[Rfam]
RNA sequence: CCCAGAGGUAUUGAUUGGUGAGAAAUCAGCGUGCCUUGCAUGCUGAAGCCAUUUUCAAUUGCACCAACCUACGCGGAUGCGUAGGUUUUUUUU
Numbered sequence: 001c002c003c004a005g006a007g008g009u010a011u012u013g014a015u016u017g018g019u020g021a022g023a024a025a026u027c028a029g030c031g032u033g034c035c036u037u038g039c040a041u042g043c044u045g046a047a048g049c050c051a052u053u054u055u056c057a058a059u060u061g062c063a064c065c066a067a068c069c070u071a072c073g074c075g076g077a078u079g080c081g082u083a084g085g086u087u088u089u090u091u092u093u
Stems, first nucleotide, its partner, number of pairs: 016066005021055001028044006067086008

Shown here is a 93-nucleotide RNA sequence, a member of the family "OmrA-B family". The family has 23 seed sequences and 153 matches in Rfam 15.1. For this family Rfam cites "Novel small RNA-encoding genes in the intergenic regions of Escherichia coli" (Argaman et al., Curr Biol, 2001).